Source information
Shown here is a 185-nucleotide sequence from Lederbergia lenta, a member of the family "Lysine riboswitch aptamer". Lineage of the source: Bacteria > Bacillati > Bacillota > Bacillaceae > Lederbergia.
RNA sequence: AAUAAAGAUAGAGGUGCAAACCUUCAAGAGUAGAAAUCUGAAGAAGUAUAGGCUUCGACGAUAGAUUUUGAAAGGGAUGGUUUGCCGAAGUGGAGAAGAACCUAUAAUAAUCUCUGCUGGUCCUGGGUUUAAGAAAUGCAGGAUUGUCAAAACAGGAGACACUGUUUUGGAGAGCUAUCUCAUGA
Numbered sequence: 001a002a003u004a005a006a007g008a009u010a011g012a013g014g015u016g017c018a019a020a021c022c023u024u025c026a027a028g029a030g031u032a033g034a035a036a037u038c039u040g041a042a043g044a045a046g047u048a049u050a051g052g053c054u055u056c057g058a059c060g061a062u063a064g065a066u067u068u069u070g071a072a073a074g075g076g077a078u079g080g081u082u083u084g085c086c087g088a089a090g091u092g093g094a095g096a097a098g099a100a101c102c103u104a105u106a107a108u109a110a111u112c113u114c115u116g117c118u119g120g121u122c123c124u125g126g127g128u129u130u131a132a133g134a135a136a137u138g139c140a141g142g143a144u145u146g147u148c149a150a151a152a153c154a155g156g157a158g159a160c161a162c163u164g165u166u167u168u169g170g171a172g173a174g175c176u177a178u179c180u181c182a183u184g185a
Stems, first nucleotide, its partner, number of pairs: 006180006016085007024077001033069008089118008099108001119145007127137003147170007
Rfam's curators write: Riboswitches are metabolite binding domains within certain messenger RNAs that serve as precision sensors for their corresponding targets. Allosteric rearrangement of mRNA structure is mediated by ligand binding, and this results in modulation of gene expression. This family includes riboswitches that sense lysine in a number of genes involved in lysine metabolism, including lysC. A search with the family's covariance model found it, with a score of 119 bits.